Shown here is a 65-nucleotide sequence from Flavobacterium sediminis, a member of the family "S15-Flavobacteria ribosomal protein leader". The organism belongs to Flavobacterium, within Bacteria. A search with the family's covariance model found it, with a score of 62 bits.
RNA sequence: UAUCUUUGCACCCGAAUUGAGAUCAUCUCAAUUGUACAUAAAAAUCAUUAACUAAUAUUGGCAUG
Numbered sequence: 001u002a003u004c005u006u007u008g009c010a011c012c013c014g015a016a017u018u019g020a021g022a023u024c025a026u027c028u029c030a031a032u033u034g035u036a037c038a039u040a041a042a043a044a045u046c047a048u049u050a051a052c053u054a055a056u057a058u059u060g061g062c063a064u065g
Stems, first nucleotide, its partner, number of pairs: 015033006